Source information
The record is a 48-nucleotide RNA, which matches "S4-Clostridia ribosomal protein leader" in Rfam. For this family Rfam cites "Discovery of 20 novel ribosomal leader candidates in bacteria and archaea" (Eckert and Weinberg, BMC Microbiol, 2020). By type it is a cis-regulatory leader.

RNA sequence: GAAAGGCUGCCCGCAGGCAGCUGGACAGCUAUGUCUGUCCCAAUUAGA
Numbered sequence: 001g002a003a004a005g006g007c008u009g010c011c012c013g014c015a016g017g018c019a020g021c022u023g024g025a026c027a028g029c030u031a032u033g034u035c036u037g038u039c040c041c042a043a044u045u046a047g048a
Stems, first nucleotide, its partner, number of pairs: 005022007023040006